SAM riboswitch aptamer (S box leader): a 104-nucleotide RNA from Jeotgalibacillus sp. R-1-5s-1. Rfam's curators write: The SAM riboswitch is found upstream of a number of genes which code for proteins involved in methionine or cysteine biosynthesis in Gram-positive bacteria. Pairs were carried over by alignment from the consensus structure, which is taken from published work.
[Rfam]
RNA sequence: GUCUUAUCAAGAGAGGUUGAGGGACUGGCCCAAUGAAACCUCGGCAACAGACUGACUCAUCAGUACUGUGCCAAUUCCAGCAAGUAUUUCUUGAUAGAUAAGAC
Numbered sequence: 001g002u003c004u005u006a007u008c009a010a011g012a013g014a015g016g017u018u019g020a021g022g023g024a025c026u027g028g029c030c031c032a033a034u035g036a037a038a039c040c041u042c043g044g045c046a047a048c049a050g051a052c053u054g055a056c057u058c059a060u061c062a063g064u065a066c067u068g069u070g071c072c073a074a075u076u077c078c079a080g081c082a083a084g085u086a087u088u089u090c091u092u093g094a095u096a097g098a099u100a101a102g103a104c
Stems, first nucleotide, its partner, number of pairs: 001104008013042005021031003025080004043072004048068002051064004076096001081093004